The record is a 195-nucleotide RNA from Psychrobacillus insolitus, which matches "Group II catalytic intron D1-D4-5" in Rfam. The family has 139 seed sequences and 720 matches in Rfam 15.1. The pairing is the family consensus, mapped onto this sequence. Taxonomically the source falls in Psychrobacillus (Bacteria, Bacillota, Bacilli, Bacillaceae). For this family Rfam cites "Group II introns: structure and catalytic versatility of large natural ribozymes" (Lehmann and Schmidt, Crit Rev Biochem Mol Biol, 2003). About the family: Group II introns are found in rRNA, tRNA and mRNA of organelles in fungi, plants and protists, and also in mRNA in bacteria.

[Rfam]
RNA sequence: UUGAAGGGUUAUAUCGAGAAGUCGAAUGAGGAGGUAACGCUCUGAAAGGAUUCCCCUGCGUCGAGUAGUACGUUGAUCAGUAAGGAAACGCGUGUUAUAAGCUCGGUUAAUAGGCGUGAGAAUUUACCGUAACAGUUUGGCUGACGAAAGCCUACCCGAUGGGGUGGUGUAAAUCAUGAUGCUUGGGUUGAACAA
Numbered sequence: 001u002u003g004a005a006g007g008g009u010u011a012u013a014u015c016g017a018g019a020a021g022u023c024g025a026a027u028g029a030g031g032a033g034g035u036a037a038c039g040c041u042c043u044g045a046a047a048g049g050a051u052u053c054c055c056c057u058g059c060g061u062c063g064a065g066u067a068g069u070a071c072g073u074u075g076a077u078c079a080g081u082a083a084g085g086a087a088a089c090g091c092g093u094g095u096u097a098u099a100a101g102c103u104c105g106g107u108u109a110a111u112a113g114g115c116g117u118g119a120g121a122a123u124u125u126a127c128c129g130u131a132a133c134a135g136u137u138u139g140g141c142u143g144a145c146g147a148a149a150g151c152c153u154a155c156c157c158g159a160u161g162g163g164g165u166g167g168u169g170u171a172a173a174u175c176a177u178g179a180u181g182c183u184u185g186g187g188u189u190g191a192a193c194a195a
Stems, first nucleotide, its partner, number of pairs: 018053003022049002031043001033041002054187003061106004065098009077086002113183005122174006128146003134142002150168003154165004